[Rfam]
RNA sequence: AGGCGAAGGUCCCAGCGGAGGGGUAUGGACUCUGUGAUUGAGGCCUCUCUAACAUAUAGACAAUUCUAAACCUUCGCAGAAUAAGUUUUGCCGAAUCGUAGGAUGCCCAGAAUUUCUUUGUUCCUGGUUCAUCUGGAACCCUCGGCUAAAUUAUU
Numbered sequence: 001a002g003g004c005g006a007a008g009g010u011c012c013c014a015g016c017g018g019a020g021g022g023g024u025a026u027g028g029a030c031u032c033u034g035u036g037a038u039u040g041a042g043g044c045c046u047c048u049c050u051a052a053c054a055u056a057u058a059g060a061c062a063a064u065u066c067u068a069a070a071c072c073u074u075c076g077c078a079g080a081a082u083a084a085g086u087u088u089u090g091c092c093g094a095a096u097c098g099u100a101g102g103a104u105g106c107c108c109a110g111a112a113u114u115u116c117u118u119u120g121u122u123c124c125u126g127g128u129u130c131a132u133c134u135g136g137a138a139c140c141c142u143c144g145g146c147u148a149a150a151u152u153a154u155u
Stems, first nucleotide, its partner, number of pairs: 003077007011020001013018001027047001030042003034038001090146005102133002105130001107127004112122001
Record summary: Rfam assigns this 155-nucleotide RNA from Trema andersonii to the family "Small nucleolar RNA snoR145". It is annotated as an H/ACA-box small nucleolar RNA. The base pairs follow the family's consensus structure, which was predicted with mfold.